[Rfam]
RNA sequence: AGGUGAAAAAGGCAAACCUGUCGAAAGUCAGGGACGCAAAGCUUCCGGUCUAAGAUCAAGAAUUUUUCAAUGAUUAUGAUAGCGGGGUUGCUGGA
Number, nucleotide and partner (000 for none) at each position: 001a000002g000003g000004u000005g000006a000007a000008a000009a000010a000011g000012g037013c036014a000015a000016a000017c032018c031019u030020g029021u000022c027023g000024a000025a000026a000027g022028u000029c020030a019031g018032g017033g000034a000035c000036g013037c012038a000039a000040a089041g088042c087043u086044u000045c085046c084047g083048g080049u079050c078051u000052a000053a000054g000055a074056u073057c072058a071059a000060g000061a000062a000063u000064u000065u000066u000067u000068c000069a000070a000071u058072g057073a056074u055075u000076a000077u000078g050079a049080u048081a000082g000083c047084g046085g045086g043087g042088u041089u040090g000091c000092u000093g000094g000095a000
Description
Shown here is a 95-nucleotide RNA sequence from Parashewanella spongiae, a member of the family "c-di-GMP-I riboswitch aptamer". The base pairs follow the family's consensus structure, which is taken from published work. On this family, see Sudarsan et al., Science 2008: "Riboswitches in Eubacteria Sense the Second Messenger Cyclic Di-GMP". A search with the family's covariance model found it, with a score of 81 bits.